[Rfam]
SAM (S-adenosyl methionine) riboswitch aptamer: a 118-nucleotide RNA from Kocuria sp. WRN011. Rfam links the family to the GO terms regulation of gene expression and S-adenosylmethionine metabolic process. The family is grouped with related families in Rfam's "SAM clan". The organism belongs to Kocuria, within Bacteria. From the family's description: SAM-IV is a mRNA element that regulates gene expression via direct sensing of S-adenosylmethionine (SAM or AdoMet). SAM-IV riboswitches share conserved nucleotide positions with the previously described SAM-I riboswitches sequence analysis and molecular recognition experiments suggest that SAM-I and SAM-IV riboswitches share similar ligand binding sites, but have different scaffolds.
RNA sequence: GAUCAUGAGUCCCGGUGUGAAGCUCUGGCUAACCGGGCGGCAACCCUCCAGCACGUAGCGGGGUGCCCCAGAUGAGGAUCCGGCCGCCGCGCAACCGCACGGCGAGCAAGUACGGCGC
Numbered sequence: 001g002a003u004c005a006u007g008a009g010u011c012c013c014g015g016u017g018u019g020a021a022g023c024u025c026u027g028g029c030u031a032a033c034c035g036g037g038c039g040g041c042a043a044c045c046c047u048c049c050a051g052c053a054c055g056u057a058g059c060g061g062g063g064u065g066c067c068c069c070a071g072a073u074g075a076g077g078a079u080c081c082g083g084c085c086g087c088c089g090c091g092c093a094a095c096c097g098c099a100c101g102g103c104g105a106g107c108a109a110g111u112a113c114g115g116c117g118c
Stems, first nucleotide, its partner, number of pairs: 001080004009038001011037006021030002039067003044063003048058001083107002085104005091098002